[Rfam]
RNA sequence: AAUGUCCUUCGGGGGUGGGUGAAAUUCCCUACCGGCGGUGAUGAAGCUAUUGCUUCUUAGUCCGUGACCCGCAAUUUUCGAAUCGAAAAUUGCGGUGGAUCUGGUGAAACUCCAGGGCCGACAGUGAAAGUCUGGAUGGGAGAAGGAUUUA
Number, nucleotide and partner (000 for none) at each position: 001a000002a000003u000004g148005u147006c146007c145008u144009u143010c142011g000012g000013g000014g000015g000016u000017g029018g028019g027020u000021g000022a000023a000024a000025u000026u000027c019028c018029c017030u000031a131032c130033c120034g119035g065036c064037g063038g062039u000040g000041a000042u000043g000044a000045a000046g000047c000048u000049a000050u000051u000052g000053c000054u000055u000056c000057u000058u000059a000060g118061u117062c038063c037064g036065u035066g000067a000068c000069c095070c094071g093072c092073a091074a000075u000076u000077u000078u000079c000080g000081a000082a000083u000084c000085g000086a000087a000088a000089a000090u000091u073092g072093c071094g070095g069096u000097g000098g000099a000100u116101c115102u114103g113104g112105u000106g000107a000108a000109a000110c000111u000112c104113c103114a102115g101116g100117g061118c060119c034120g033121a000122c134123a133124g132125u000126g000127a000128a000129a000130g032131u031132c124133u123134g122135g000136a000137u000138g000139g000140g000141a000142g010143a009144a008145g007146g006147a005148u004149u000150u000151a000

Overview: The family of this 151-nucleotide sequence from Bacillus sp. THAF10 is "FMN riboswitch aptamer (RFN element)".